Background:
Shown here is a 71-nucleotide RNA sequence, a member of the family "skipping-rope RNA".

[Rfam]
RNA sequence: AGAACUAGAGGACGGAACGGGCAGCCGUCACCCUUGUUAGGAGAUGUGGGAGCGUCGCCCCACCUAGUUCU
Numbered sequence: 001a002g003a004a005c006u007a008g009a010g011g012a013c014g015g016a017a018c019g020g021g022c023a024g025c026c027g028u029c030a031c032c033c034u035u036g037u038u039a040g041g042a043g044a045u046g047u048g049g050g051a052g053c054g055u056c057g058c059c060c061c062a063c064c065u066a067g068u069u070c071u
Base pairs, nucleotide, nucleotide: 001071002070003069004068005067006066007065008064011029012028013027014026015025020056021055022054031041046063047062048061049060050059